Description: This 112-nucleotide RNA from Gossypium stocksii belongs to the Rfam family "Plastid-psbA-1 3UTR RNA". About the family: Plastid psbA-1 is a non-coding RNA (ncRNA) present in plastids. It was identified in inverted repeat sequences in the 3 prime untranslate region (3UTR) of photosystem II quinone-binding protein (psbA). Pairs were carried over by alignment from the consensus structure, which was predicted with LocARNA. Taxonomically the source falls in Gossypium (Eukaryota, Streptophyta, rosids, Malvoideae). On this family, see Richter et al., Plant Commun 2023: "Retrograde signaling in plants: A critical review focusing on the GUN pathway and beyond".
RNA sequence: UUUUUUCUAUUAAAAAAAAAAUAGAAAAAAAGGUAAAGAAAGACCACUAAAUCGAAAUAAAGGAGCAAUAACCACUUUCUUGUUCUAGCAAGAGUGUUGGUAUUGCUCCUUU
Numbered sequence: 001u002u003u004u005u006u007c008u009a010u011u012a013a014a015a016a017a018a019a020a021a022u023a024g025a026a027a028a029a030a031a032g033g034u035a036a037a038g039a040a041a042g043a044c045c046a047c048u049a050a051a052u053c054g055a056a057a058u059a060a061a062g063g064a065g066c067a068a069u070a071a072c073c074a075c076u077u078u079c080u081u082g083u084u085c086u087a088g089c090a091a092g093a094g095u096g097u098u099g100g101u102a103u104u105g106c107u108c109c110u111u112u
Stems, first nucleotide, its partner, number of pairs: 002017005059112012074097002077094005